[Rfam]
RNA: FMN riboswitch aptamer (RFN element)
RNA sequence: GUUUUCUCUUGGGGCAGGGUGAAAUUCCCGACCGGCGGUGAUAGGCAGCUUAGCUGUCUUCAGUCCGUGACCCGUUAUUAUAACGGUGGAUUUGGUGAGAUUCCAAAGCCGACAGUAUAGUCUGGAUGGGAAAGAGGAAAC
Numbered sequence: 001g002u003u004u005u006c007u008c009u010u011g012g013g014g015c016a017g018g019g020u021g022a023a024a025u026u027c028c029c030g031a032c033c034g035g036c037g038g039u040g041a042u043a044g045g046c047a048g049c050u051u052a053g054c055u056g057u058c059u060u061c062a063g064u065c066c067g068u069g070a071c072c073c074g075u076u077a078u079u080a081u082a083a084c085g086g087u088g089g090a091u092u093u094g095g096u097g098a099g100a101u102u103c104c105a106a107a108g109c110c111g112a113c114a115g116u117a118u119a120g121u122c123u124g125g126a127u128g129g130g131a132a133a134g135a136g137g138a139a140a141c
Stems, first nucleotide, its partner, number of pairs: 003139008017029003031121002033111002035068004063109002072086002091107005113124003
Dot-bracket structure: ..((((((((......(((.......))).[[((((((........................[[))))...((...........))....(((((.......)))))]])).(((....]]))).......))))))))..